[Rfam]
RNA: Small nucleolar RNA SNORA32
RNA sequence: AAGUCAUUACCAAGGCUUUUAGAAUGAAGUUUCUCAUUUGCUGUGGACAUGACCAUAAAAACAUUCCCACUAGGUUUUCUGUCUGCUACCUUGUUAGCUGUCAACCUGCUGGGAACAUUA
Numbered sequence: 001a002a003g004u005c006a007u008u009a010c011c012a013a014g015g016c017u018u019u020u021a022g023a024a025u026g027a028a029g030u031u032u033c034u035c036a037u038u039u040g041c042u043g044u045g046g047a048c049a050u051g052a053c054c055a056u057a058a059a060a061a062c063a064u065u066c067c068c069a070c071u072a073g074g075u076u077u078u079c080u081g082u083c084u085g086c087u088a089c090c091u092u093g094u095u096a097g098c099u100g101u102c103a104a105c106c107u108g109c110u111g112g113g114a115a116c117a118u119u120a
Base pairs, nucleotide, nucleotide: 003053004052005051006050007049010046011045012044026041028039029038066113067112068111069110073106074105075104076103085098086097